[Rfam]
RNA sequence: UUAGCUAUUUUAGAUAGGUUUGUAUUCAUGAAAUCAUGGAUGCAAACAGACAACGUGUUUGUAUCUAUGAUGGCUAGAGAAGUUUGAGAUGACUUUCGCCACGUAGAUGAAAAUAUCUAUAGUGGCUUUUUCUAUACCUUUUAUUUUUCGGGCAGAAGACUCAUUGUAGAUUUUUCAUCUACAA
Numbered sequence: 001u002u003a004g005c006u007a008u009u010u011u012a013g014a015u016a017g018g019u020u021u022g023u024a025u026u027c028a029u030g031a032a033a034u035c036a037u038g039g040a041u042g043c044a045a046a047c048a049g050a051c052a053a054c055g056u057g058u059u060u061g062u063a064u065c066u067a068u069g070a071u072g073g074c075u076a077g078a079g080a081a082g083u084u085u086g087a088g089a090u091g092a093c094u095u096u097c098g099c100c101a102c103g104u105a106g107a108u109g110a111a112a113a114u115a116u117c118u119a120u121a122g123u124g125g126c127u128u129u130u131u132c133u134a135u136a137c138c139u140u141u142u143a144u145u146u147u148u149c150g151g152g153c154a155g156a157a158g159a160c161u162c163a164u165u166g167u168a169g170a171u172u173u174u175u176c177a178u179c180u181a182c183a184a
Base pairs, nucleotide, nucleotide: 001077002076003075004074005073006072007071011067012066013065014064015063016062018047019046020045021044022043023042024041025040026039027038028037029036048060049059050058051057081145082144083143086140087139088138090136098126099125100124101123102122104119105118106117146158147157
Enterococcus sRNA 2410: a 184-nucleotide RNA sequence from Enterococcus pallens. The organism belongs to Enterococcus pallens, within Bacteria. The family's RNA type in Rfam is small RNA. For this family Rfam cites "Small RNAs in vancomycin-resistant Enterococcus faecium involved in daptomycin response and resistance" (Sinel et al., Sci Rep, 2017). It scores 81 bits against the family's covariance model. Rfam describes the family as follows. Produced as 2 transcripts on Northern blot. Expressed in mid, late exponential and early stationary phases of growth. Expression remained uniform under daptomycin exposure.